[Rfam]
RNA sequence: CCUGGAGGACUAAUCGGACUGAGUCUGAAGAGUGAGACUUGGAUCGCAAUAGCCUCCUAAAAGAAGAGGGAUGGGGAGAGCGGCCCUGCUUACAGAAGAGCAAAGGGCUGACUGUGCCAUCCAACAUUG
Number, nucleotide and partner (000 for none) at each position: 001c000002c000003u059004g057005g056006a055007g054008g053009a000010c000011u000012a000013a000014u000015c000016g000017g044018a000019c042020u000021g040022a039023g038024u037025c036026u035027g000028a000029a000030g000031a000032g000033u000034g000035a026036g025037a024038c023039u022040u021041g000042g019043a000044u017045c000046g000047c000048a000049a000050u000051a000052g000053c008054c007055u006056c005057c004058u000059a003060a000061a000062a000063g000064a000065a000066g000067a000068g122069g121070g120071a000072u000073g000074g000075g000076g000077a000078g000079a113080g112081c110082g109083g108084c107085c106086c105087u104088g000089c000090u000091u102092a000093c100094a000095g000096a000097a000098g000099a000100g093101c000102a091103a000104a087105g086106g085107g084108c083109u082110g081111a000112c080113u079114g000115u000116g000117c000118c000119a000120u070121c069122c068123a000124a000125c000126a000127u000128u000129g000

Description
The record is a 129-nucleotide sequence from Cuculus canorus, which matches "Small Cajal body specific RNA 4" in Rfam. Pairs were carried over by alignment from the consensus structure, which was predicted with RNAfold. The family has 24 seed sequences and 634 matches in Rfam 15.1. Clan: SCARNA4 clan. On this family, see Darzacq et al., EMBO J 2002: "Cajal body-specific small nuclear RNAs: a novel class of 2'-O-methylation and pseudouridylation guide RNAs". Rfam's curators write: scaRNAs are a specific class of small nuclear RNAs which localise to the Cajal bodies and guide the modification of RNA polymerase II transcribed spliceosomal RNAs U1, U2, U4, U5 and U12. ACA26 belongs to the H/ACA box class of guide RNAs as it has the predicted hairpin-hinge-hairpin-tail structure, conserved H/ACA-box motifs and is found associated with GAR1. It scores 86 bits against the family's covariance model.